[Rfam]
RNA sequence: UCAGAUGACCGGAUGGCCGCGUCCUGCCUGUUCAGGCAGGCCGAGGAAAGUCCGGGCUCCACGGAACGAGGACGCCGGGUAACGCCCGGCUGGUGCGAACCAAGGGAUAGCGCCACAGAGAGCAGACCGCCUCCACGGCCCUGGCCGGGGAGGUAAGGGUGAAAGGGUGCGGUAAGAGCGCACCGCCGGGCCGGCAACGGUCCGGGCAUGGCAAGCCCCGUCCGGAGCAAGACCGAAUAGGGACAGCAUGGUUACUGACCAGGGCCCGUUCCGGCCCCACUGUCCGGGUUGGUUGCUGGAGGCGUCGCGCAAGCGCCGCCCGAGAGGAAUGGUCAUCGCCCGCCGAUCACUCGGCGGGAUACAGAACCCGGCUUACAGGUCAUCUGACGCU
Numbered sequence: 001u002c003a004g005a006u007g008a009c010c011g012g013a014u015g016g017c018c019g020c021g022u023c024c025u026g027c028c029u030g031u032u033c034a035g036g037c038a039g040g041c042c043g044a045g046g047a048a049a050g051u052c053c054g055g056g057c058u059c060c061a062c063g064g065a066a067c068g069a070g071g072a073c074g075c076c077g078g079g080u081a082a083c084g085c086c087c088g089g090c091u092g093g094u095g096c097g098a099a100c101c102a103a104g105g106g107a108u109a110g111c112g113c114c115a116c117a118g119a120g121a122g123c124a125g126a127c128c129g130c131c132u133c134c135a136c137g138g139c140c141c142u143g144g145c146c147g148g149g150g151a152g153g154u155a156a157g158g159g160u161g162a163a164a165g166g167g168u169g170c171g172g173u174a175a176g177a178g179c180g181c182a183c184c185g186c187c188g189g190g191c192c193g194g195c196a197a198c199g200g201u202c203c204g205g206g207c208a209u210g211g212c213a214a215g216c217c218c219c220g221u222c223c224g225g226a227g228c229a230a231g232a233c234c235g236a237a238u239a240g241g242g243a244c245a246g247c248a249u250g251g252u253u254a255c256u257g258a259c260c261a262g263g264g265c266c267c268g269u270u271c272c273g274g275c276c277c278c279a280c281u282g283u284c285c286g287g288g289u290u291g292g293u294u295g296c297u298g299g300a301g302g303c304g305u306c307g308c309g310c311a312a313g314c315g316c317c318g319c320c321c322g323a324g325a326g327g328a329a330u331g332g333u334c335a336u337c338g339c340c341c342g343c344c345g346a347u348c349a350c351u352c353g354g355c356g357g358g359a360u361a362c363a364g365a366a367c368c369c370g371g372c373u374u375a376c377a378g379g380u381c382a383u384c385u386g387a388c389g390c391u
Base pairs, nucleotide, nucleotide: 001387002386003385004384005383006382007381008380009379010378011376012337013336014335015334016333017332018331020043021042023040024039025038026037027036028035048374049373050372052371053370054369055368056367057227058226059225060224066270070223071222072221073220074219075089076088077087078086079085090104091102092101093100094099105218106217110216111215112212113211114210127158128157129154130153131152132151133150134149136147137146138145139144166184167183168182169181170180171179185207186205187204188203189202190201191200192199193198231294232293233292234291241285242284243283244282245281246280262277263276264275265274266273301320302319303318304317306315307314308313
This 391-nucleotide RNA from Aquisalinus flavus belongs to the Rfam family "Bacterial RNase P class A".
It scores 308 bits against the family's covariance model.
Ribonuclease P (RNase P) is a ubiquitous endoribonuclease, found in archaea, bacteria and eukarya as well as chloroplasts and mitochondria. Its best characterised activity is the generation of mature 5'-ends of tRNAs by cleaving the 5'-leader elements of precursor-tRNAs.